[Rfam]
RNA sequence: CGCUAAUGCCCUCCUUGGGCGUUUCCUCCCUUGACUUGCACCGCUUGUGGCAACACGAGCGGUUUUUUCUUUUUGGGU
Numbered sequence: 001c002g003c004u005a006a007u008g009c010c011c012u013c014c015u016u017g018g019g020c021g022u023u024u025c026c027u028c029c030c031u032u033g034a035c036u037u038g039c040a041c042c043g044c045u046u047g048u049g050g051c052a053a054c055a056c057g058a059g060c061g062g063u064u065u066u067u068u069c070u071u072u073u074u075g076g077g078u
Base pairs, nucleotide, nucleotide: 008020009019010018011017040063041062042061043060044059045058046057047056048055
Dot-bracket structure: .......((((.....))))...................(((((((((......)))))))))...............
This 78-nucleotide sequence from Beijerinckia indica belongs to the Rfam family "Makes More Granules Regulator RNA (mmgR)". Rfam's curators write: SuhB later renamed mmgR (makes more granules regulator) was a putative non-coding RNA found multiple times in the Agrobacterium tumefaciens genome and related alpha-proteobacteria. NCBI's taxonomy places the organism under Bacteria, Pseudomonadota, Beijerinckiaceae, Beijerinckia, Beijerinckia indica subsp. indica. The match comes from Rfam's covariance-model search (63 bits).